SAM riboswitch aptamer (S box leader): a 124-nucleotide sequence from Cytobacillus horneckiae.

RNA sequence: CUCUUAUCCCGAGCUGGUGGAGGGACAGGCCCUAUGAAACCCAGCAACCUGCCAACUUUAUUUAUGAGCAAAGGUGCUAACCUGAUGCAAGGAUAAAUAAUGUAUGAUCCUUGAUCGAUAAGAG
Numbered sequence: 001c002u003c004u005u006a007u008c009c010c011g012a013g014c015u016g017g018u019g020g021a022g023g024g025a026c027a028g029g030c031c032c033u034a035u036g037a038a039a040c041c042c043a044g045c046a047a048c049c050u051g052c053c054a055a056c057u058u059u060a061u062u063u064a065u066g067a068g069c070a071a072a073g074g075u076g077c078u079a080a081c082c083u084g085a086u087g088c089a090a091g092g093a094u095a096a097a098u099a100a101u102g103u104a105u106g107a108u109c110c111u112u113g114a115u116c117g118a119u120a121a122g123a124g
Stems, first nucleotide, its partner, number of pairs: 001124008013042001016041003022032003026087002029083001043078004048074002050070003088113006

The family's consensus secondary structure is taken from published work.